[Rfam]
RNA sequence: UUCUGCGAAAUCUAUUUUAGUAGAAAGUUUAUUAUAGAUAAUUCUUUGUAUAGCACUGAUUUCCAUUUCUUGUACAUUGUUAUGUACUCUUAGGAUAAAUUAGGGGGCUCUGUGCCCUACUAUUGGAAGUUAACCUCAGAAGAAGAAUAUAUUGUUGAUGAACUGACAGUCUAUUUGUGAUAAGGUAAAUAGACAAAAGGGAAACAGCCCAGAUCAUAUAUUAAGGUACCCUAAAUGAUAUUUAGUGAAAUUAAGAAAGUUUUUUAUCUAAGACAACUAUGAAGUAAGCUUGGAAGUAGCUAUCUUUUAAUGAAAGUGUAACAACUCAAUAGUCUAAAAAUCCUUAUGGAUGAAUCUGAUAAAAAGCAUCGAAAAUUUAACGGGUCUAGAUAUCUAACCUACAUUAUGAUUCUCUAUAUUUAUGAUAUAUAAAUAUAGUGGAAGGUAGCAGAACACUUAGUAUUCAGUGUGAAGAAAUAAAUAAAUUUAUUUUUGACUAUACUAAAGAGAUAAU
Numbered sequence: 001u002u003c004u005g006c007g008a009a010a011u012c013u014a015u016u017u018u019a020g021u022a023g024a025a026a027g028u029u030u031a032u033u034a035u036a037g038a039u040a041a042u043u044c045u046u047u048g049u050a051u052a053g054c055a056c057u058g059a060u061u062u063c064c065a066u067u068u069c070u071u072g073u074a075c076a077u078u079g080u081u082a083u084g085u086a087c088u089c090u091u092a093g094g095a096u097a098a099a100u101u102a103g104g105g106g107g108c109u110c111u112g113u114g115c116c117c118u119a120c121u122a123u124u125g126g127a128a129g130u131u132a133a134c135c136u137c138a139g140a141a142g143a144a145g146a147a148u149a150u151a152u153u154g155u156u157g158a159u160g161a162a163c164u165g166a167c168a169g170u171c172u173a174u175u176u177g178u179g180a181u182a183a184g185g186u187a188a189a190u191a192g193a194c195a196a197a198a199g200g201g202a203a204a205c206a207g208c209c210c211a212g213a214u215c216a217u218a219u220a221u222u223a224a225g226g227u228a229c230c231c232u233a234a235a236u237g238a239u240a241u242u243u244a245g246u247g248a249a250a251u252u253a254a255g256a257a258a259g260u261u262u263u264u265u266a267u268c269u270a271a272g273a274c275a276a277c278u279a280u281g282a283a284g285u286a287a288g289c290u291u292g293g294a295a296g297u298a299g300c301u302a303u304c305u306u307u308u309a310a311u312g313a314a315a316g317u318g319u320a321a322c323a324a325c326u327c328a329a330u331a332g333u334c335u336a337a338a339a340a341u342c343c344u345u346a347u348g349g350a351u352g353a354a355u356c357u358g359a360u361a362a363a364a365a366g367c368a369u370c371g372a373a374a375a376u377u378u379a380a381c382g383g384g385u386c387u388a389g390a391u392a393u394c395u396a397a398c399c400u401a402c403a404u405u406a407u408g409a410u411u412c413u414c415u416a417u418a419u420u421u422a423u424g425a426u427a428u429a430u431a432a433a434u435a436u437a438g439u440g441g442a443a444g445g446u447a448g449c450a451g452a453a454c455a456c457u458u459a460g461u462a463u464u465c466a467g468u469g470u471g472a473a474g475a476a477a478u479a480a481a482u483a484a485a486u487u488u489a490u491u492u493u494u495g496a497c498u499a500u501a502c503u504a505a506a507g508a509g510a511u512a513a514u
Stems, first nucleotide, its partner, number of pairs: 001453006011024005027163007036156001037153004041148006051138001052136002057132003061128004169194010199210003214409004220404002225399003237394005255370002259367010276333005282306003287301003312327001316325002410443004414438010454509001457505006466498002474493008